RNA sequence: UUCUUAUCAAGAGAGAUGGAGGGAUUCGGCCCUUUGAAGUCUCAGCAACCAGCCUUUAGAGGUAUGGUGCUAAUUCCAAUAGGUUUUUAACCUAGGAGAUAAGAA
Dot-bracket structure: ((((((((....(((((...(((..[.[[)))......)))))((((.(((.(.......).)..))))))...(]].]((((((...))))))..)))))))))
The family of this 105-nucleotide RNA from Aquibacillus halophilus is "SAM riboswitch aptamer (S box leader)". Taxonomically the source falls in Aquibacillus (Bacteria, Bacillota, Bacilli, Bacillaceae). A search with the family's covariance model found it, with a score of 92 bits.